[Rfam]
RNA sequence: UCCCUGCUUUCCAUCAGCGGGGGUUACUGAAGAGGCACACCAUCAUUGCCGGAAGUGCGGUUGGGAUUCUCCCUCCAAUCCAUGGCAGACAAAGCCGAACUUACACCGCGUCCGCGGCGUUGGUUCACUAUCCGCGCAUCGAGCGCUUGCUAUGGUU
Numbered sequence: 001u002c003c004c005u006g007c008u009u010u011c012c013a014u015c016a017g018c019g020g021g022g023g024u025u026a027c028u029g030a031a032g033a034g035g036c037a038c039a040c041c042a043u044c045a046u047u048g049c050c051g052g053a054a055g056u057g058c059g060g061u062u063g064g065g066a067u068u069c070u071c072c073c074u075c076c077a078a079u080c081c082a083u084g085g086c087a088g089a090c091a092a093a094g095c096c097g098a099a100c101u102u103a104c105a106c107c108g109c110g111u112c113c114g115c116g117g118c119g120u121u122g123g124u125u126c127a128c129u130a131u132c133c134g135c136g137c138a139u140c141g142a143g144c145g146c147u148u149g150c151u152a153u154g155g156u157u
Base pairs, nucleotide, nucleotide: 001023002022003021004020005019006018007017008016034050035049036048037047057137058136059135084096085095104119106117107116108115109114
RNA: speF leader